[Rfam]
RNA sequence: UGUACUAUUGAAAUAUAAGUUCGUAUAAGCUCAUAAUAUGGUUGAGCGUUUCUACCGGUUUACCGUAAAUUACCGACUAUGAAUGGAGGAAAUAUGCUA
Number, nucleotide and partner (000 for none) at each position: 001u000002g000003u000004a000005c000006u000007a000008u000009u000010g000011a000012a000013a000014u000015a000016u000017a000018a000019g084020u083021u082022c081023g080024u079025a078026u000027a000028a000029g047030c046031u045032c044033a043034u000035a000036a000037u000038a000039u000040g000041g000042u000043u033044g032045a031046g030047c029048g000049u000050u000051u000052c000053u000054a000055c000056c075057g074058g073059u072060u000061u000062a070063c000064c000065g000066u000067a000068a000069a000070u062071u000072a059073c058074c057075g056076a000077c000078u025079a024080u023081g022082a021083a020084u019085g000086g000087a000088g000089g000090a000091a000092a000093u000094a000095u000096g000097c000098u000099a000
RNA: Purine riboswitch aptamer